Overview
The record is an 85-nucleotide RNA from Coprococcus sp. AF21-14LB, which matches "Glycine riboswitch aptamer" in Rfam. Taxonomically the source falls in Coprococcus (Bacteria, Bacillota, Clostridia, Lachnospiraceae).
RNA sequence: UACUCUGGAAAGGCAGCAGAAGCAGAUUGGCAGCUGUUUCGGCUGGACCGAAGAGGGGAAAUCUUUCAGGUAAAAGGACAGAGCA
Numbered sequence: 001u002a003c004u005c006u007g008g009a010a011a012g013g014c015a016g017c018a019g020a021a022g023c024a025g026a027u028u029g030g031c032a033g034c035u036g037u038u039u040c041g042g043c044u045g046g047a048c049c050g051a052a053g054a055g056g057g058g059a060a061a062u063c064u065u066u067c068a069g070g071u072a073a074a075a076g077g078a079c080a081g082a083g084c085a
Stems, first nucleotide, its partner, number of pairs: 001085001003083005014045004047071003050067002054065003